RNA sequence: UUAGAUAGAAGAGUUCCCCCGGUCAGAGCCAUCCGCUCCACGCCGGAACAUAAAAAAACCGACCUCACCAGUCGGUUUUUUUAU
Numbered sequence: 001u002u003a004g005a006u007a008g009a010a011g012a013g014u015u016c017c018c019c020c021g022g023u024c025a026g027a028g029c030c031a032u033c034c035g036c037u038c039c040a041c042g043c044c045g046g047a048a049c050a051u052a053a054a055a056a057a058a059c060c061g062a063c064c065u066c067a068c069c070a071g072u073c074g075g076u077u078u079u080u081u082u083a084u
Base pairs, nucleotide, nucleotide: 019046020045021044022043023042026038027037028036052081053080054079055078056077057076059075060074061073062072063071

Shown here is an 84-nucleotide sequence from Jejuibacter calystegiae, a member of the family "ArsR-gov region gene B". From the family's description: arsR-gov region gene B is transcribed opposite of dinQ (translates into a toxic single transmembrane peptide) with 30 complimentary nucleotides. AgrB appears to repress accumulation of dinQ by RNA interference and counteracts its toxicity.